[Rfam]
RNA sequence: UCUAGCGCCUUGCUUCCGACUCCCCGCCGAGUUGCGAUCCUGACACACUUCCCCAGUGCCAGGCCCGAUGCGGAGGGGAAUCGGAACCAAGGGGCCGGGUCGC
Number, nucleotide and partner (000 for none) at each position: 001u000002c000003u000004a000005g000006c000007g000008c000009c000010u090011u089012g088013c000014u086015u085016c084017c000018g082019a081020c000021u079022c078023c077024c076025c075026g000027c073028c072029g071030a000031g069032u068033u067034g066035c000036g000037a000038u000039c063040c062041u061042g060043a000044c058045a057046c056047a000048c000049u000050u000051c000052c000053c000054c000055a000056g046057u045058g044059c000060c042061a041062g040063g039064c000065c000066c034067g033068a032069u031070g000071c029072g028073g027074a000075g025076g024077g023078g022079a021080a000081u019082c018083g000084g016085a015086a014087c000088c012089a011090a010091g000092g000093g000094g000095c000096c000097g000098g000099g000100u000101c000102g000103c000
Source information: The record is a 103-nucleotide sequence from Terrimesophilobacter mesophilus, which matches "mraW RNA" in Rfam. The match comes from Rfam's covariance-model search (59 bits).